Description: This 74-nucleotide RNA sequence from Polymorphum gilvum belongs to the Rfam family "tRNA". The family's consensus secondary structure is taken from published work. The source organism's lineage runs through Bacteria, Pseudomonadati, Pseudomonadota, Polymorphum and Polymorphum gilvum. It scores 74 bits against the family's covariance model. Rfam 15.1 lists 5,335,975 matches to the family in 14,413 species. The family's RNA type in Rfam is transfer RNA. Transfer RNA (tRNA) molecules are approximately 80 nucleotides in length.
RNA sequence: GCAGACGUAGCUCAGUUGGUUAGAGCGUCGGAUUGUGGCUCCGAAGGUCGGUGGUUCGAAUCCACCCGUCUGUA
Numbered sequence: 001g002c003a004g005a006c007g008u009a010g011c012u013c014a015g016u017u018g019g020u021u022a023g024a025g026c027g028u029c030g031g032a033u034u035g036u037g038g039c040u041c042c043g044a045a046g047g048u049c050g051g052u053g054g055u056u057c058g059a060a061u062c063c064a065c066c067c068g069u070c071u072g073u074a
Stems, first nucleotide, its partner, number of pairs: 001073007010026004028044005050066005